Rfam assigns this 369-nucleotide RNA from Granulicatella sp. WM01 to the family "Bacterial RNase P class B".
The source organism's lineage runs through Bacteria, Bacillati, Lactobacillales, Carnobacteriaceae and Granulicatella.
For this family Rfam cites "Ribonuclease P: unity and diversity in a tRNA processing ribozyme" (Frank and Pace, Annu Rev Biochem, 1998).

[Rfam]
RNA sequence: AACUUCGGAUUAUUGCAGUCUUUUAGGCUGAGGAAAGUCCAUGCUCGCACAAGCUGAAAUGCUUGUAGUGUUCGUGCUUAACGAAACAAUAAGUUAAGGCAACCAAAUGGUUGACGGCAGAAAAAAUGACUAAGGGAAACUAUGUCAAAGUAUUCUUGAAAGUGCCACAGUGACGAAGCAAUAUUGGAAACUUUAUUGGUGGAACGCGGUAAACCCCUCGAGCGAGCAACCCAAACUAUUGGUAGGGGCACUCUUUAUUAGGAAUAACAACGAAAAAAGAGGUGUGCAUUUGUCAAUGUACACAGACAGAUAAUAAUCGAUGUUUAAAAUCUCCCGAGUUUUAAACGGAACAGAACAUGGCUUAUAGAA
Dot-bracket structure: ...(((((((((((.((((((...))))))....[[[.[[[[[(((((((((((......)))))).....(((.(((((((..........))))))((((((....))))).)((.((((....((((...((....))..)))).....)))).....(((((............(((((..(....)..))))).........)))..))))).))))))))...(((............)))...((((((...................))))))(((((((((....)))))))))........)))))))..((((((((((.......))))))))))........]]]]]]]].).)))